[Rfam]
RNA sequence: CCCUGCUGUCGCGACUGGCGUUGGAUGGGUCACCAUCGGGGAGCGGCAACAGACACGGAUCGCGGCCGUACGCCUGGGCCACGAGA
Dot-bracket structure: ..(((.((((((..(([[[[[...((((....))))..))..)))))).)))...........((((..]]]]]..))))......
The family of this 86-nucleotide sequence from Curtobacterium sp. MCBD17_040 is "ZMP/ZTP riboswitch aptamer (pfl RNA motif)". Gene Ontology terms of the family: one-carbon metabolic process and regulation of purine nucleotide biosynthetic process. The base pairs follow the family's consensus structure, which is taken from published work. A search with the family's covariance model found it, with a score of 60 bits. NCBI's taxonomy places the organism under Bacteria, Bacillati, Actinomycetes, Micrococcales, Curtobacterium.